[Rfam]
RNA sequence: CUAAACCUUCGGGGCAGGGUGAAAUUCCCUACCGGCGGUGAUUCCGGCAGCAUGCUGCCGGAUCAGUCCGUGACCCGUGCGGCUGCGAGAAGCGAUGCGACUCGCAGCCGCCGGUGGACUCGGUGUAACUCCGAGACCGACAGUAUAGUCUGGAUGGGAGAAGGGAAAG
Numbered sequence: 001c002u003a004a005a006c007c008u009u010c011g012g013g014g015c016a017g018g019g020u021g022a023a024a025u026u027c028c029c030u031a032c033c034g035g036c037g038g039u040g041a042u043u044c045c046g047g048c049a050g051c052a053u054g055c056u057g058c059c060g061g062a063u064c065a066g067u068c069c070g071u072g073a074c075c076c077g078u079g080c081g082g083c084u085g086c087g088a089g090a091a092g093c094g095a096u097g098c099g100a101c102u103c104g105c106a107g108c109c110g111c112c113g114g115u116g117g118a119c120u121c122g123g124u125g126u127a128a129c130u131c132c133g134a135g136a137c138c139g140a141c142a143g144u145a146u147a148g149u150c151u152g153g154a155u156g157g158g159a160g161a162a163g164g165g166a167a168a169g
Base pairs, nucleotide, nucleotide: 006164007163008162009161010160017029018028019027031149032148033139034138035071036070037069038068066137067136075114076113119135120134121133122132123131141152142151143150
RNA: FMN riboswitch aptamer (RFN element)